[Rfam]
RNA sequence: CUUCCCAUUGAUUUGCUGCUCUAGUCUUGCAGUGAUAGGAGCGGUUAUACGCAUGGGAGAGAACAAUGUUAGGCCGUGGUAAAUGGAGGUGGAGUGACCAUUUCAUCUCUUCUGCCCGGCCCAGACACUG
Numbered sequence: 001c002u003u004c005c006c007a008u009u010g011a012u013u014u015g016c017u018g019c020u021c022u023a024g025u026c027u028u029g030c031a032g033u034g035a036u037a038g039g040a041g042c043g044g045u046u047a048u049a050c051g052c053a054u055g056g057g058a059g060a061g062a063a064c065a066a067u068g069u070u071a072g073g074c075c076g077u078g079g080u081a082a083a084u085g086g087a088g089g090u091g092g093a094g095u096g097a098c099c100a101u102u103u104c105a106u107c108u109c110u111u112c113u114g115c116c117c118g119g120c121c122c123a124g125a126c127a128c129u130g
Stems, first nucleotide, its partner, number of pairs: 003058006015045007022037002025035002069124002072121005078116004086109010

Rfam assigns this 130-nucleotide RNA sequence from Enhydra lutris to the family "Small nucleolar RNA SNORA20". By type it is an H/ACA-box small nucleolar RNA. Its Rfam clan is "SNORA20 clan". NCBI's taxonomy places the organism under Eukaryota, Bilateria, Craniata, Eutheria, Enhydra lutris. The base pairs follow the family's consensus structure, which was predicted with ILM. About the family: ACA20 is a member of the H/ACA class of snoRNA that guide the sites of modification of uridines to pseudouridines.